The record is a 99-nucleotide RNA sequence from Caenorhabditis elegans, which matches "mir-36 microRNA precursor family" in Rfam. Gene Ontology terms of the family: miRNA-mediated post-transcriptional gene silencing and RISC complex. The family has 46 seed sequences and 199 matches in Rfam 15.1. The organism belongs to Caenorhabditis, within Eukaryota.

RNA sequence: UUCUCGGAUCAGAUCGAGCCAUUGCUGGUUUCUUCCACAGUGGUACUUUCCAUUAGAACUAUCACCGGGUGGAAACUAGCAGUGGCUCGAUCUUUUCCA
Numbered sequence: 001u002u003c004u005c006g007g008a009u010c011a012g013a014u015c016g017a018g019c020c021a022u023u024g025c026u027g028g029u030u031u032c033u034u035c036c037a038c039a040g041u042g043g044u045a046c047u048u049u050c051c052a053u054u055a056g057a058a059c060u061a062u063c064a065c066c067g068g069g070u071g072g073a074a075a076c077u078a079g080c081a082g083u084g085g086c087u088c089g090a091u092c093u094u095u096u097c098c099a
Stems, first nucleotide, its partner, number of pairs: 015089007023081011035069002038067001040065006